[Rfam]
Nucleotides: 144
Base pairs, nucleotide, nucleotide: 003142004141005140006139007138008137013042014041015040016039017038021031022030023029026111027110028109043104044103045102046101048100049099051096052095053094054093108136113133114132115131116130117129118128119127120126
Number, partner (000 for none) and nucleotide at each position: 001000a002000g003142c004141u005140c006139a007138u008137c009000c010000a011000g012000a013042g014041g015040g016039g017038c018000a019000g020000a021031g022030g023029g024000a025000a026111c027110g028109g029023c030022c031021c032000g033000u034000u035000g036000a037000a038017g039016c040015c041014c042013c043104g044103g045102c046101a047000a048100c049099c050000a051096u052095c053094c054093g055000a056000u057000c058000g059000g060000u061000a062000c063000a064000c065000c066000c067000a068000u069000g070000u071000g072000c073000g074000u075000c076000g077000c078000a079000c080000g081000c082000g083000g084000g085000g086000c087000c088000g089000c090000c091000g092000c093054c094053g095052g096051a097000c098000u099049g100048g101046u102045g103044c104043c105000a106000a107000a108136u109028c110027c111026g112000g113133c114132c115131u116130g117129c118128g119127g120126g121000g122000a123000c124000c125000u126120c127119c128118c129117g130116c131115g132114g133113g134000g135000a136108a137008g138007a139006u140005g141004a142003g143000g144000a

Record summary: The record is a 144-nucleotide RNA sequence from Yinghuangia soli, which matches "SAM riboswitch aptamer (S box leader)" in Rfam. The match comes from Rfam's covariance-model search (76 bits). The organism belongs to Yinghuangia, within Bacteria.